[Rfam]
RNA sequence: CACUCUGGAGAGAGGCACGGGGUUUCCGCCCCAUCGUGCCCGCCGAAGGGGAAGCCGUCCGGCCAAGUCGGGUGGGCAAUCUCUCAGGUACCCGUGACAGAGAG
Numbered sequence: 001c002a003c004u005c006u007g008g009a010g011a012g013a014g015g016c017a018c019g020g021g022g023u024u025u026c027c028g029c030c031c032c033a034u035c036g037u038g039c040c041c042g043c044c045g046a047a048g049g050g051g052a053a054g055c056c057g058u059c060c061g062g063c064c065a066a067g068u069c070g071g072g073u074g075g076g077c078a079a080u081c082u083c084u085c086a087g088g089u090a091c092c093c094g095u096g097a098c099a100g101a102g103a104g
Stems, first nucleotide, its partner, number of pairs: 001104001003102005014040007042089003045085002049083003055076002
A member of the RNA family "Glycine riboswitch aptamer" from Lichenibacterium minor, 104 nucleotides long. The match comes from Rfam's covariance-model search (40 bits). Rfam links the family to the GO term glycine biosynthetic process. A reference for the family is Mandal et al. (2004), "A glycine-dependent riboswitch that uses cooperative binding to control gene expression", Science.